[Rfam]
RNA sequence: CUGUCGGUAUUUAUAUUAAAUCGAACAGAAUAAUUUAUAUUAAGUUUCAACUCAUAUCCUUAACGGAAUGAGAGUGAGGA
Number, nucleotide and partner (000 for none) at each position: 001c028002u027003g026004u024005c023006g022007g021008u020009a000010u019011u018012u000013a000014u000015a000016u000017u000018a011019a010020a008021u007022c006023g005024a004025a000026c003027a002028g001029a000030a000031u000032a000033a000034u000035u000036u000037a000038u000039a000040u000041u000042a000043a000044g000045u000046u000047u000048c076049a075050a000051c072052u071053c070054a069055u068056a000057u067058c066059c065060u000061u000062a000063a000064c000065g059066g058067a057068a055069u054070g053071a052072g051073a000074g000075u049076g048077a000078g000079g000080a000
Shown here is an 80-nucleotide sequence from Clostridium cadaveris, a member of the family "pan motif". NCBI's taxonomy places the organism under Bacteria, Bacillati, Clostridia, Clostridiaceae, Clostridium. The base pairs follow the family's consensus structure, which is taken from published work.